[Rfam]
RNA sequence: GCGGAGGGCUGGACGGUCGCGCGAUGCAAAUCGUGAGGAAAGUCCGGGCUCCAUCGGAGCGAUGACGCCGGGUAACGCCCGGCCGGGGCAACCCGAGGGACAGCGCCACAGAGAACAGACCGCCCCUGACAUCAGGGGUAAGGGUGAAACGGUGGGGUAAGAGCCCACCGCGGCCUUGGCAACAAGGCUGGCAUGGCAAGCCCCGUCAGGAGCAAGGCCGAAUAGGGACCGCGCGGGGGCAUGACCCCCAGGGAUGCUCCUUCCCAGUGGUCCGGGUUGGCUGCAUGAGCGCAGGAGCGAUUCUGCGCCCAGACGAAUGACCGUCCACGAGUGGUACUUCAUACCACUUUGGACAGAACCCGGCUUACAGGCCCUCCGCACAU
Numbered sequence: 001g002c003g004g005a006g007g008g009c010u011g012g013a014c015g016g017u018c019g020c021g022c023g024a025u026g027c028a029a030a031u032c033g034u035g036a037g038g039a040a041a042g043u044c045c046g047g048g049c050u051c052c053a054u055c056g057g058a059g060c061g062a063u064g065a066c067g068c069c070g071g072g073u074a075a076c077g078c079c080c081g082g083c084c085g086g087g088g089c090a091a092c093c094c095g096a097g098g099g100a101c102a103g104c105g106c107c108a109c110a111g112a113g114a115a116c117a118g119a120c121c122g123c124c125c126c127u128g129a130c131a132u133c134a135g136g137g138g139u140a141a142g143g144g145u146g147a148a149a150c151g152g153u154g155g156g157g158u159a160a161g162a163g164c165c166c167a168c169c170g171c172g173g174c175c176u177u178g179g180c181a182a183c184a185a186g187g188c189u190g191g192c193a194u195g196g197c198a199a200g201c202c203c204c205g206u207c208a209g210g211a212g213c214a215a216g217g218c219c220g221a222a223u224a225g226g227g228a229c230c231g232c233g234c235g236g237g238g239g240c241a242u243g244a245c246c247c248c249c250a251g252g253g254a255u256g257c258u259c260c261u262u263c264c265c266a267g268u269g270g271u272c273c274g275g276g277u278u279g280g281c282u283g284c285a286u287g288a289g290c291g292c293a294g295g296a297g298c299g300a301u302u303c304u305g306c307g308c309c310c311a312g313a314c315g316a317a318u319g320a321c322c323g324u325c326c327a328c329g330a331g332u333g334g335u336a337c338u339u340c341a342u343a344c345c346a347c348u349u350u351g352g353a354c355a356g357a358a359c360c361c362g363g364c365u366u367a368c369a370g371g372c373c374c375u376c377c378g379c380a381c382a383u
Stems, first nucleotide, its partner, number of pairs: 001379010011368001012325007020035006040366003044363005049212004059259001061257001063208005068082005083097001084095004098203002103201002105197003120143002122139007151169006170192001171190008216282004226273006251265004289308008
This 383-nucleotide RNA sequence from Rubricella aquisinus belongs to the Rfam family "Bacterial RNase P class A". Pairs were carried over by alignment from the consensus structure, which is taken from published work. Gene Ontology terms of the family: tRNA processing, ribonuclease P activity and dimeric ribonuclease P complex. A search with the family's covariance model found it, with a score of 309 bits. About the family: Ribonuclease P (RNase P) is a ubiquitous endoribonuclease, found in archaea, bacteria and eukarya as well as chloroplasts and mitochondria. Its best characterised activity is the generation of mature 5'-ends of tRNAs by cleaving the 5'-leader elements of precursor-tRNAs. Cellular RNase Ps are ribonucleoproteins. RNA from bacterial RNase Ps retains its catalytic activity in the absence of the protein subunit, i.e. it is a ribozyme. It is annotated as a ribozyme. NCBI's taxonomy places the organism under Bacteria, Pseudomonadati, Pseudomonadota, Alphaproteobacteria, Rubricella.